[Rfam]
RNA sequence: CCAGGGGGCUGGGCAGCCGCGCUAUCCGCAAGGGUAUCGAGGAAAGUCCGGGCUCCACGAAACAAGGGUGGCGGGUAACGCCCGCCGUGGGCAACCACAGGGAAAGUGCCACAGAGAGUAUACCGCCGAUGGCGCCUAAAGCGCACAGGCAAGGGUGAAAGGGUGCGGUAAAAGCGCACCGGGGUUCUGGCAACAGCGCCCGCAUGGCAAACCCCACCCGGAGCAAGGCCAAAUAGGGGCCUCGCGCCGUAAAAGGCAGGGGCGUUUCGCCCCGAGAGGCCCGGGUUGGCUGCUUGAGCCAUGGAGCGAUCCAUGGCCUAGAUGAAUGGCUGCCCCUGCGCGGCCGGUCUCUUCGGAGAUACCGCGGGCAGGACAGAACCCGGCUUACAGGCCCCCUGGCAUC
Numbered sequence: 001c002c003a004g005g006g007g008g009c010u011g012g013g014c015a016g017c018c019g020c021g022c023u024a025u026c027c028g029c030a031a032g033g034g035u036a037u038c039g040a041g042g043a044a045a046g047u048c049c050g051g052g053c054u055c056c057a058c059g060a061a062a063c064a065a066g067g068g069u070g071g072c073g074g075g076u077a078a079c080g081c082c083c084g085c086c087g088u089g090g091g092c093a094a095c096c097a098c099a100g101g102g103a104a105a106g107u108g109c110c111a112c113a114g115a116g117a118g119u120a121u122a123c124c125g126c127c128g129a130u131g132g133c134g135c136c137u138a139a140a141g142c143g144c145a146c147a148g149g150c151a152a153g154g155g156u157g158a159a160a161g162g163g164u165g166c167g168g169u170a171a172a173a174g175c176g177c178a179c180c181g182g183g184g185u186u187c188u189g190g191c192a193a194c195a196g197c198g199c200c201c202g203c204a205u206g207g208c209a210a211a212c213c214c215c216a217c218c219c220g221g222a223g224c225a226a227g228g229c230c231a232a233a234u235a236g237g238g239g240c241c242u243c244g245c246g247c248c249g250u251a252a253a254a255g256g257c258a259g260g261g262g263c264g265u266u267u268c269g270c271c272c273c274g275a276g277a278g279g280c281c282c283g284g285g286u287u288g289g290c291u292g293c294u295u296g297a298g299c300c301a302u303g304g305a306g307c308g309a310u311c312c313a314u315g316g317c318c319u320a321g322a323u324g325a326a327u328g329g330c331u332g333c334c335c336c337u338g339c340g341c342g343g344c345c346g347g348u349c350u351c352u353u354c355g356g357a358g359a360u361a362c363c364g365c366g367g368g369c370a371g372g373a374c375a376g377a378a379c380c381c382g383g384c385u386u387a388c389a390g391g392c393c394c395c396c397u398g399g400c401a402u403c
Stems, first nucleotide, its partner, number of pairs: 001399010011388001012334007020039002023036005044386003048383005053223004062267001064265001066219005071085005086100001087098004101214002106212002108208003123154002125150003130147002132144004162180006181203001182201004187196003227291004237282006259273005298317008
The record is a 403-nucleotide RNA from Altererythrobacter sp. BO-6, which matches "Bacterial RNase P class A" in Rfam. It is annotated as a ribozyme. A search with the family's covariance model found it, with a score of 301 bits.